This 52-nucleotide RNA from Salinimonas iocasae belongs to the Rfam family "L31-Gammaproteobacteria ribosomal protein leader".
It is annotated as a cis-regulatory leader.
It scores 54 bits against the family's covariance model.
The source organism's lineage runs through Bacteria, Pseudomonadota, Alteromonadales, Alteromonadaceae and Salinimonas.
RNA sequence: CGUAUGGUGUUCAGCUUCGGGCUGGAUUGCGAUACGGCCUUUUUUUUGAGGU
Numbered sequence: 001c002g003u004a005u006g007g008u009g010u011u012c013a014g015c016u017u018c019g020g021g022c023u024g025g026a027u028u029g030c031g032a033u034a035c036g037g038c039c040u041u042u043u044u045u046u047u048g049a050g051g052u
Stems, first nucleotide, its partner, number of pairs: 001036005007030002011025005